[Rfam]
Small nucleolar RNA Z157/R69/R10: a 103-nucleotide sequence from Dichanthelium oligosanthes. Gene Ontology terms of the family: nucleolus and RNA processing. The match comes from Rfam's covariance-model search (79 bits). The organism belongs to Dichanthelium, within Eukaryota. A reference for the family is Chen et al. (2003), "The high diversity of snoRNAs in plants: identification and comparative study of 120 snoRNA genes from Oryza sativa", Nucleic Acids Res.

RNA sequence: AUUUGCAGUCGUGAUGAACAACUGUGUUUUGGACUAGAGUUUCUGAUACUGCUACAUAGUGGUAGUAGUUGACGACCAAACCCUUGGCUGUCUGAACUCAAAU
Dot-bracket structure: (((((.(((..............................(.((...((((((.........))))))...)).).....................))))))))